The record is a 152-nucleotide sequence from Alsobacter metallidurans, which matches "speF leader" in Rfam.
RNA sequence: GUCCGACCCUCCAAAGGUCGGAUCACCGAAGAGGCUUGUCCUUCUUUGCCCGACGUGCGGAUGGGGUCUCCCCAGUCCAAUCCAAGGCAGCAUCAUCGGGUGUCCUCACCCGGCGUCGGCGUCUCCAAAGCGCCGCGUCGUGGGACCGACAC
Numbered sequence: 001g002u003c004c005g006a007c008c009c010u011c012c013a014a015a016g017g018u019c020g021g022a023u024c025a026c027c028g029a030a031g032a033g034g035c036u037u038g039u040c041c042u043u044c045u046u047u048g049c050c051c052g053a054c055g056u057g058c059g060g061a062u063g064g065g066g067u068c069u070c071c072c073c074a075g076u077c078c079a080a081u082c083c084a085a086g087g088c089a090g091c092a093u094c095a096u097c098g099g100g101u102g103u104c105c106u107c108a109c110c111c112g113g114c115g116u117c118g119g120c121g122u123c124u125c126c127a128a129a130g131c132g133c134c135g136c137g138u139c140g141u142g143g144g145a146c147c148g149a150c151a152c
Stems, first nucleotide, its partner, number of pairs: 001023008033050003057133003101115004

Rfam's curators write: This family is a putative regulatory RNA structure that is found upstream of the speF gene encoding ornithine decarboxylase in Agrobacterium tumefaciens and other alpha-proteobacteria.
Rfam classes the family as a cis-regulatory leader.
A reference for the family is Corbino et al. (2005), "Evidence for a second class of S-adenosylmethionine riboswitches and other regulatory RNA motifs in alpha-proteobacteria", Genome Biol.